Rfam assigns this 179-nucleotide RNA sequence from Peptoclostridium litorale to the family "6S / SsrS RNA".
By type it is a non-coding RNA gene.
About the family: E. coli 6S RNA was the first non coding RNA to be sequenced, but its function was unknown until recently.
The match comes from Rfam's covariance-model search (85 bits).
The base pairs follow the family's consensus structure, which is taken from published work.
The literature on the family includes a 2017 paper in Molecular Cell by Chen et al., "6S RNA Mimics B-Form DNA to Regulate Escherichia coli RNA Polymerase".
Taxonomically the source falls in Peptoclostridium litorale (Bacteria, Bacillati, Clostridia, Peptoclostridium).

RNA sequence: AAGUACCUGGAAUGUUCGAUAGGCUUUAUUUAAAUUCAACCGACACGUUGAAUACGGGAGUUCAAGUCCUUCAAUGUACGUCAUGCCUCCGAUGGAGGAAGGCAGAAAAUGAGGGCAGGACACCCACCUGAGUUAUCUCGGGUAUGAAUUUAUUGAGGCCGCGGCAUUUUGGGUUUUCU
Numbered sequence: 001a002a003g004u005a006c007c008u009g010g011a012a013u014g015u016u017c018g019a020u021a022g023g024c025u026u027u028a029u030u031u032a033a034a035u036u037c038a039a040c041c042g043a044c045a046c047g048u049u050g051a052a053u054a055c056g057g058g059a060g061u062u063c064a065a066g067u068c069c070u071u072c073a074a075u076g077u078a079c080g081u082c083a084u085g086c087c088u089c090c091g092a093u094g095g096a097g098g099a100a101g102g103c104a105g106a107a108a109a110u111g112a113g114g115g116c117a118g119g120a121c122a123c124c125c126a127c128c129u130g131a132g133u134u135a136u137c138u139c140g141g142g143u144a145u146g147a148a149u150u151u152a153u154u155g156a157g158g159c160c161g162c163g164g165c166a167u168u169u170u171g172g173g174u175u176u177u178c179u
Stems, first nucleotide, its partner, number of pairs: 002177002005174011017163002031152004036147003039143003056125003060121004067115001069114005075108001081102002086098005